[Rfam]
RNA sequence: AUCGUACGGCCGCCGAAUCCGCACUCGCGGAGCCGGGGACCCAUCUCUUCCGGGGUGAAUCGGAGCGCCGGCCCCCCAGGGGCGCCCGUAGGGCACUUCCUGCCCGAACCCGUCAGCUAACCCGGUAGGCGGCAUGGAAGCUAGGA
Numbered sequence: 001a002u003c004g005u006a007c008g009g010c011c012g013c014c015g016a017a018u019c020c021g022c023a024c025u026c027g028c029g030g031a032g033c034c035g036g037g038g039a040c041c042c043a044u045c046u047c048u049u050c051c052g053g054g055g056u057g058a059a060u061c062g063g064a065g066c067g068c069c070g071g072c073c074c075c076c077c078a079g080g081g082g083c084g085c086c087c088g089u090a091g092g093g094c095a096c097u098u099c100c101u102g103c104c105c106g107a108a109c110c111c112g113u114c115a116g117c118u119a120a121c122c123c124g125g126u127a128g129g130c131g132g133c134a135u136g137g138a139a140g141c142u143a144g145g146a
Stems, first nucleotide, its partner, number of pairs: 011131004018031003032126006042052001053111003061088003091105004
A member of the RNA family "c-di-AMP riboswitch aptamer (ydaO/yuaA leader)" from Microbispora oryzae, 146 nucleotides long. The source organism's lineage runs through Bacteria, Actinomycetes, Streptosporangiales, Streptosporangiaceae and Microbispora. This family represents a conserved RNA structure found upstream of the ydaO and yuaA genes in Bacillus subtilis and related genes in other bacteria. The ydaO/yuaA element is thought to act as a genetic 'off' switch for the ydaO and yuaA genes in its native state. Rfam links the family to the GO terms cyclic-di-AMP binding and regulation of gene expression.